[Rfam]
Rfam assigns this 118-nucleotide sequence from Segniliparus rotundus to the family "SAM (S-adenosyl methionine) riboswitch aptamer".
On this family, see Weinberg et al., RNA 2008: "The aptamer core of SAM-IV riboswitches mimics the ligand-binding site of SAM-I riboswitches".
Gene Ontology terms of the family: S-adenosylmethionine metabolic process and regulation of gene expression.
RNA sequence: GGUCAAGAGUCCUAGCAACAAGCCCCGGCUCGCUAGGCGGCAACCCCCGUACCGCGGCGGGGUGCUCCGGGUGAGGACCUGGUUUGCCUGCGAAACCCGCAGGCGGCAAGCGCGGGUC
Numbered sequence: 001g002g003u004c005a006a007g008a009g010u011c012c013u014a015g016c017a018a019c020a021a022g023c024c025c026c027g028g029c030u031c032g033c034u035a036g037g038c039g040g041c042a043a044c045c046c047c048c049g050u051a052c053c054g055c056g057g058c059g060g061g062g063u064g065c066u067c068c069g070g071g072u073g074a075g076g077a078c079c080u081g082g083u084u085u086g087c088c089u090g091c092g093a094a095a096c097c098c099g100c101a102g103g104c105g106g107c108a109a110g111c112g113c114g115g116g117u118c
Base pairs, nucleotide, nucleotide: 001079002078003077004076009038011037012036013035014034015033016032021030022029039066040065041064044062045061046060048057082107083106084105086104087103088102089101090100091099092098